[Rfam]
RNA: c-di-AMP riboswitch aptamer (ydaO/yuaA leader)
Organism: Paenibacillus xylanivorans
RNA sequence: GAAUCAGUCUCGCUGAGUCUCCGUUAACGGAGAGCGGGGGAACCAAUAGGGCUUAAACAUCGGUGAUUGCAGCCGAUGCGCAACAUGCGCUGACCCAAAAGCAGCGUAUGAAUCUGCGAAGUCGUAUUUGAUUUCUUCUUUGGGUCUCGGGGUGAAUUCAAGGGCGUCCGCCAUGAGCGGAUGACCGGAGAUAGGGCGGCUCUCUUUCGCCCGAACCCGACAGCUAACCUCGCAAGCGGAAAAAGAGAGGCAAC
Number, nucleotide and partner (000 for none) at each position: 001g000002a000003a000004u000005c000006a000007g000008u000009c000010u000011c238012g237013c236014u235015g000016a000017g000018u033019c032020u031021c030022c029023g028024u000025u000026a000027a000028c023029g022030g021031a020032g019033a018034g233035c232036g231037g230038g229039g228040g000041a000042a000043c000044c149045a000046a000047u000048a000049g000050g000051g000052c000053u000054u000055a000056a000057a000058c000059a000060u000061c000062g000063g000064u000065g000066a000067u000068u000069g000070c000071a000072g000073c000074c000075g000076a000077u000078g000079c000080g000081c000082a000083a000084c000085a000086u000087g000088c000089g000090c000091u000092g000093a000094c000095c000096c000097a000098a000099a000100a000101g000102c000103a000104g000105c000106g000107u000108a000109u000110g000111a000112a000113u000114c000115u000116g000117c000118g000119a000120a000121g000122u000123c000124g000125u000126a000127u000128u000129u000130g000131a000132u000133u000134u000135c000136u000137u000138c000139u000140u000141u000142g000143g000144g000145u000146c000147u000148c000149g044150g218151g217152g216153u000154g000155a000156a000157u000158u191159c190160a000161a000162g000163g000164g000165c000166g000167u000168c000169c000170g000171c000172c000173a000174u000175g000176a000177g000178c000179g000180g000181a000182u000183g000184a000185c000186c000187g000188g000189a000190g159191a158192u000193a000194g212195g211196g210197c209198g000199g000200c000201u000202c000203u000204c000205u000206u000207u000208c000209g197210c196211c195212c194213g000214a000215a000216c152217c151218c150219g000220a000221c000222a000223g000224c000225u000226a000227a000228c039229c038230u037231c036232g035233c034234a000235a014236g013237c012238g011239g000240a000241a000242a000243a000244a000245g000246a000247g000248a000249g000250g000251c000252a000253a000254c000